T-box leader: a 222-nucleotide sequence from Acetoanaerobium sticklandii. Rfam classes the family as a cis-regulatory leader. Rfam describes the family as follows. Uncharged tRNA acts as the effector for transcription antitermination of genes in the T-box leader family. T-boxes are found upstream of many aminoacyl-tRNA synthetase genes and some amino acid biosynthetic genes usually in Gram-positive bacteria. The anticodon of a specific tRNA base pairs to a specifier sequence within the T-box motif, and the NCCA acceptor tail of the tRNA base pairs to a conserved bulge in the T-box antiterminator hairpin.

[Rfam]
RNA sequence: AUAAAUCCAAUGAUUUGGAGAGUAGUUUUUCAGAUGGCUUCAGCGAGUCGAUGUAGGUGUGAGAUCGAUAGUCUAUGGAUAAUGAAGAGGACCAAGGAGGAGACUGUGCGAACCCCGGGAUAGUAGUGCAGUACGUAUACAUGCGUUAAAUGUUUUGAGUGGACGAAGAAUGAUUUGUAUUUUUCGUCAAUUAGAGUGGUAACGCGGUGCUCCGUCUCUUGU
Number, nucleotide and partner (000 for none) at each position: 001a000002u000003a000004a000005a000006u000007c100008c099009a000010a000011u000012g000013a000014u000015u095016u094017g093018g092019a000020g000021a000022g000023u000024a000025g083026u082027u081028u000029u079030u078031c000032a000033g000034a000035u000036g073037g072038c071039u000040u000041c000042a000043g000044c000045g000046a000047g069048u068049c067050g066051a065052u064053g000054u000055a000056g000057g000058u000059g000060u000061g000062a000063g000064a052065u051066c050067g049068a048069u047070a000071g038072u037073c036074u000075a000076u000077g000078g030079a029080u000081a027082a026083u025084g000085a000086a000087g000088a000089g000090g000091a000092c018093c017094a016095a015096g000097g000098a000099g008100g007101a000102g000103a132104c131105u130106g129107u128108g127109c126110g000111a000112a000113c000114c000115c000116c000117g000118g000119g000120a000121u000122a000123g000124u000125a000126g109127u108128g107129c106130a105131g104132u103133a000134c145135g144136u143137a000138u000139a000140c000141a000142u000143g136144c135145g134146u000147u000148a000149a000150a000151u000152g000153u000154u000155u000156u000157g000158a000159g000160u000161g000162g188163a187164c186165g185166a184167a183168g182169a181170a180171u179172g178173a000174u000175u000176u000177g000178u172179a171180u170181u169182u168183u167184u166185c165186g164187u163188c162189a000190a000191u000192u000193a219194g218195a217196g216197u000198g000199g000200u000201a000202a000203c000204g215205c214206g213207g212208u000209g000210c000211u000212c207213c206214g205215u204216c196217u195218c194219u193220u000221g000222u000